[Rfam]
RNA sequence: AGGCCGGUUCGAAGGCCCUUCAUUCAAUUGCUAUGAGUGGGCGUGGUUCAAAGACUGGCCGAGA
Numbered sequence: 001a002g003g004c005c006g007g008u009u010c011g012a013a014g015g016c017c018c019u020u021c022a023u024u025c026a027a028u029u030g031c032u033a034u035g036a037g038u039g040g041g042c043g044u045g046g047u048u049c050a051a052a053g054a055c056u057g058g059c060c061g062a063g064a
Stems, first nucleotide, its partner, number of pairs: 002060008017046002020040006

Description:
Rfam assigns this 64-nucleotide RNA sequence from Trypanosoma cruzi to the family "Trypanosomatid snoRNA TB11Cs5H3". It is one of the family's seed sequences. Pairs were carried over by alignment from the consensus structure, which was predicted with WAR. Its family is annotated with RNA processing and nucleolus in the Gene Ontology. It is annotated as an H/ACA-box small nucleolar RNA.